[Rfam]
Shown here is a 97-nucleotide RNA sequence from Pseudoflavonifractor sp. An184, a member of the family "Glycine riboswitch aptamer". The organism belongs to Pseudoflavonifractor, within Bacteria.
RNA sequence: UGACUCUGGAGAAGCUCGACGAUUCGGGUGCCGAAGGUGCAACGCGGUCUUGGGUACAGGCCGCCAAUCUCUCAGGCAAAAGGACAGAGACGAGGAA
Numbered sequence: 001u002g003a004c005u006c007u008g009g010a011g012a013a014g015c016u017c018g019a020c021g022a023u024u025c026g027g028g029u030g031c032c033g034a035a036g037g038u039g040c041a042a043c044g045c046g047g048u049c050u051u052g053g054g055u056a057c058a059g060g061c062c063g064c065c066a067a068u069c070u071c072u073c074a075g076g077c078a079a080a081a082g083g084a085c086a087g088a089g090a091c092g093a094g095g096a097a
Stems, first nucleotide, its partner, number of pairs: 001092002004089005015028004030077003033073002037071001039069001044064007